[Rfam]
RNA sequence: GAGCAGUGAUGAUAUUAGGCCUUAUGGUUGGGUCCAUCGCAUUUCUCUGAUUAAUCGGAUGAGAUUGCCAUACUGAGCUC
Numbered sequence: 001g002a003g004c005a006g007u008g009a010u011g012a013u014a015u016u017a018g019g020c021c022u023u024a025u026g027g028u029u030g031g032g033u034c035c036a037u038c039g040c041a042u043u044u045c046u047c048u049g050a051u052u053a054a055u056c057g058g059a060u061g062a063g064a065u066u067g068c069c070a071u072a073c074u075g076a077g078c079u080c
Stems, first nucleotide, its partner, number of pairs: 001080004
Shown here is an 80-nucleotide RNA sequence from Raphanus sativus, a member of the family "small nucleolar RNA snoR114". A reference for the family is Chen and Wu (2009), "Mining small RNA sequencing data: a new approach to identify small nucleolar RNAs in Arabidopsis", Nucleic Acids Res. The source organism's lineage runs through Eukaryota, Viridiplantae, Embryophyta, Brassiceae and Raphanus. Rfam links the family to the GO terms nucleolus and RNA processing.